Shown here is a 132-nucleotide RNA sequence from Odocoileus virginianus, a member of the family "Small nucleolar RNA SNORA70". snoRNA U70 seems to be exclusive to mammals and is a member of the H/ACA class of snoRNA which contain H (ANANNA) and ACA box motifs. H/ACA box snoRNAs are involved in the conversion of uridines to pseudouridines (5-ribosyluracil) a constituent of structural RNAs (transfer, ribosomal, small nuclear, and small nucleolar). Rfam classes the family as an H/ACA-box small nucleolar RNA. The family has 43 seed sequences and 5,173 matches in Rfam 15.1. The source organism's lineage runs through Eukaryota, Bilateria, Euteleostomi, Ruminantia and Odocoileus virginianus. The literature on the family includes a 2000 paper in IUBMB Life by Charette and Gray, "Pseudouridine in RNA: what, where, how, and why". It scores 106 bits against the family's covariance model.
[Rfam]
RNA sequence: CUGCCGCCAGUUGAGCUAACUAUGCUCCUUUCUCCGGGGCCUGGUGUACAGUGACCGCGGACAGCAUCCUCCUUGGUAGUGUGUGCAGCCUGUUGCUUGGAUGGGUUGCCCUAAGGGACCUUGGAGAUAGAC
Numbered sequence: 001c002u003g004c005c006g007c008c009a010g011u012u013g014a015g016c017u018a019a020c021u022a023u024g025c026u027c028c029u030u031u032c033u034c035c036g037g038g039g040c041c042u043g044g045u046g047u048a049c050a051g052u053g054a055c056c057g058c059g060g061a062c063a064g065c066a067u068c069c070u071c072c073u074u075g076g077u078a079g080u081g082u083g084u085g086c087a088g089c090c091u092g093u094u095g096c097u098u099g100g101a102u103g104g105g106u107u108g109c110c111c112u113a114a115g116g117g118a119c120c121u122u123g124g125a126g127a128u129a130g131a132c
Stems, first nucleotide, its partner, number of pairs: 002050002019045004025039004075120003086108006